[Rfam]
The record is a 119-nucleotide RNA sequence from Acidithrix ferrooxidans, which matches "Actinobacteria sRNA Ms_IGR-7" in Rfam. A reference for the family is Li et al. (2013), "Identification of small RNAs in Mycobacterium smegmatis using heterologous Hfq", RNA. The base pairs follow the family's consensus structure. NCBI's taxonomy places the organism under Bacteria, Actinomycetota, Acidimicrobiia, Acidimicrobiaceae, Acidithrix. It scores 48 bits against the family's covariance model.
RNA sequence: CUAAAAGGUGCUCCUUGAACUGAUGGAUUUGAAUUGUAUUCAAACAUCAUUCUACCAGUUCAGAGCACCUUUUAGAUGUUAAAAUCAAAGUCGAUCGGCUAAAUUUUCGGUGGAUCCAG
Numbered sequence: 001c002u003a004a005a006a007g008g009u010g011c012u013c014c015u016u017g018a019a020c021u022g023a024u025g026g027a028u029u030u031g032a033a034u035u036g037u038a039u040u041c042a043a044a045c046a047u048c049a050u051u052c053u054a055c056c057a058g059u060u061c062a063g064a065g066c067a068c069c070u071u072u073u074a075g076a077u078g079u080u081a082a083a084a085u086c087a088a089a090g091u092c093g094a095u096c097g098g099c100u101a102a103a104u105u106u107u108c109g110g111u112g113g114a115u116c117c118a119g
Stems, first nucleotide, its partner, number of pairs: 002074012016062003020058003024054001026052002029049001031047001034044002102115001104113002